Rfam assigns this 113-nucleotide RNA from Scopulibacillus darangshiensis to the family "STnc490 Hfq binding RNA". The base pairs follow the family's consensus structure, which was predicted with WAR. NCBI's taxonomy places the organism under Bacteria, Bacillati, Bacillota, Sporolactobacillaceae, Scopulibacillus. The family's RNA type in Rfam is small RNA.
RNA sequence: AACCCUAGGCUAGGCCUAGGGUUCAGGAAAGCUUUCAGCGAUGUAUCAAAAAAAGCCCCUCUUAGUGCUAAAAUAAACUUUGGUUCGCCAACCAAAUUUAUCGAACUAGGAGG
Number, nucleotide and partner (000 for none) at each position: 001a023002a022003c021004c020005c019006u018007a017008g016009g015010c014011u000012a000013g000014g010015c009016c008017u007018a006019g005020g004021g003022u002023u001024c000025a000026g000027g000028a042029a000030a000031g039032c038033u037034u000035u000036c000037a033038g032039c031040g000041a000042u028043g000044u000045a000046u000047c000048a000049a000050a000051a000052a000053a000054a000055g000056c000057c000058c113059c112060u111061c110062u109063u108064a107065g106066u105067g000068c000069u104070a000071a000072a000073a101074u100075a000076a099077a098078c000079u096080u095081u094082g093083g092084u091085u000086c000087g000088c000089c000090a000091a084092c083093c082094a081095a080096a079097u000098u077099u076100a074101u073102c000103g000104a069105a066106c065107u064108a063109g062110g061111a060112g059113g058